Rfam assigns this 213-nucleotide RNA sequence from Amphibacillus marinus to the family "T-box leader". It scores 99 bits against the family's covariance model.
RNA sequence: UAAAAUACGAUGAGAAGCACUAGUAUGUAGUAGUCCAUUUUAGAGAGAGGUAUACCCAAGGCUGGAAGGUAUACUAAAUGAAGGGUUACAGAAGCUCGCUUUGAGUGCAAGGUCAUGCUUGCCGGUCACACGCCGUUAUCAUGUGUCUAAGGUGAUAGUUUUUUAGUGAACUAUAAUCAGGGUGGUACCGCGAUACAAGCUUUCGUCCCUGCA
Numbered sequence: 001u002a003a004a005a006u007a008c009g010a011u012g013a014g015a016a017g018c019a020c021u022a023g024u025a026u027g028u029a030g031u032a033g034u035c036c037a038u039u040u041u042a043g044a045g046a047g048a049g050g051u052a053u054a055c056c057c058a059a060g061g062c063u064g065g066a067a068g069g070u071a072u073a074c075u076a077a078a079u080g081a082a083g084g085g086u087u088a089c090a091g092a093a094g095c096u097c098g099c100u101u102u103g104a105g106u107g108c109a110a111g112g113u114c115a116u117g118c119u120u121g122c123c124g125g126u127c128a129c130a131c132g133c134c135g136u137u138a139u140c141a142u143g144u145g146u147c148u149a150a151g152g153u154g155a156u157a158g159u160u161u162u163u164u165a166g167u168g169a170a171c172u173a174u175a176a177u178c179a180g181g182g183u184g185g186u187a188c189c190g191c192g193a194u195a196c197a198a199g200c201u202u203u204c205g206u207c208c209c210u211g212c213a
Stems, first nucleotide, its partner, number of pairs: 007106002015101004026090006038078003049075008108121004123135003155174007179210004190206004